[Rfam]
RNA sequence: CCCAGCAGUAGUCAGCUACCCAUUGCUGCUCAGUGCCUGUGAUAGUGUUAUGCUGCUGGGAGAGGAAAGCCCCUGCCAAUACACUCCUGGCACUGCCAGUGCUGUUCUGGCACUGGCUGGUGCCGGGUUUUGGCAGUGCUCUGCAUACUUGAGAGUGGAGUAACUCCUCCUCAGUGGAGUUAAUCCUAGAUUGGAUGCAGACAAU
Numbered sequence: 001c002c003c004a005g006c007a008g009u010a011g012u013c014a015g016c017u018a019c020c021c022a023u024u025g026c027u028g029c030u031c032a033g034u035g036c037c038u039g040u041g042a043u044a045g046u047g048u049u050a051u052g053c054u055g056c057u058g059g060g061a062g063a064g065g066a067a068a069g070c071c072c073c074u075g076c077c078a079a080u081a082c083a084c085u086c087c088u089g090g091c092a093c094u095g096c097c098a099g100u101g102c103u104g105u106u107c108u109g110g111c112a113c114u115g116g117c118u119g120g121u122g123c124c125g126g127g128u129u130u131u132g133g134c135a136g137u138g139c140u141c142u143g144c145a146u147a148c149u150u151g152a153g154a155g156u157g158g159a160g161u162a163a164c165u166c167c168u169c170c171u172c173a174g175u176g177g178a179g180u181u182a183a184u185c186c187u188a189g190a191u192u193g194g195a196u197g198c199a200g201a202c203a204a205u
Stems, first nucleotide, its partner, number of pairs: 001060009011051002015046004020041001021039002025036002071138001073136006086127009096116002100112004141200006148193001157186003161182007

The family of this 205-nucleotide RNA from Melopsittacus undulatus is "Small nucleolar RNA SNORA74". By type it is an H/ACA-box small nucleolar RNA. The base pairs follow the family's consensus structure, which was predicted with PFOLD. Clan: SNORA74 clan. A search with the family's covariance model found it, with a score of 120 bits. Rfam describes the family as follows. U19 belongs to the H/ACA class of snoRNAs. snoRNAs bind a number of proteins (including dyskerin, Gar1p and Nop10p in the case of the H/ACA class) to form snoRNP complexes. This class are thought to guide the sites of modification of uridines to pseudouridines by forming direct base pairing interactions with substrate RNAs. Targets may include ribosomal and spliceosomal RNAs but the exact functions of many snoRNAs, including U19, are not confirmed. Co-precipitation of U19 snoRNA with RNase MRP RNA suggests that U19 may be involved in pre-rRNA processing. On this family, see Ganot et al., Genes Dev 1997: "The family of box ACA small nucleolar RNAs is defined by an evolutionarily conserved secondary structure and ubiquitous sequence elements essential for RNA accumulation".